[Rfam]
RNA sequence: AUGCCUUAAACUUAUGAGUAAGGAAAGUAACGAUUCGGGGUGAUGCCCGAAUCCUCACUGCUGAUGUGAGACGGAUUUUUGUGCGGGUCAAGGUUGCCCUAAUGACCUGCCUGCUUUGCAGGAUGCCUAGGAGUUGCUGAUCUGCCUG
Numbered sequence: 001a002u003g004c005c006u007u008a009a010a011c012u013u014a015u016g017a018g019u020a021a022g023g024a025a026a027g028u029a030a031c032g033a034u035u036c037g038g039g040g041u042g043a044u045g046c047c048c049g050a051a052u053c054c055u056c057a058c059u060g061c062u063g064a065u066g067u068g069a070g071a072c073g074g075a076u077u078u079u080u081g082u083g084c085g086g087g088u089c090a091a092g093g094u095u096g097c098c099c100u101a102a103u104g105a106c107c108u109g110c111c112u113g114c115u116u117u118g119c120a121g122g123a124u125g126c127c128u129a130g131g132a133g134u135u136g137c138u139g140a141u142c143u144g145c146c147u148g
Stems, first nucleotide, its partner, number of pairs: 004023005032053008054070005084148005091143005096137002099131002102128001103125002106122005
RNA: U12 minor spliceosomal RNA
Organism: Molossus molossus